This 58-nucleotide sequence from Panagrellus redivivus belongs to the Rfam family "mir-7918 microRNA precursor family". Rfam links the family to the GO terms RISC complex and miRNA-mediated post-transcriptional gene silencing. Rfam's curators put it in the seed alignment. The base pairs follow the family's consensus structure, which was predicted with RNAalifold.
[Rfam]
RNA sequence: AUUUGGCUCUAAAAUCUUGCUGUGGGCAUUGAAAUCCAGCAAGUUUCAGAGCUUUUUG
Dot-bracket structure: ....((((((.(((.(((((((.(...........))))))))))).)))))).....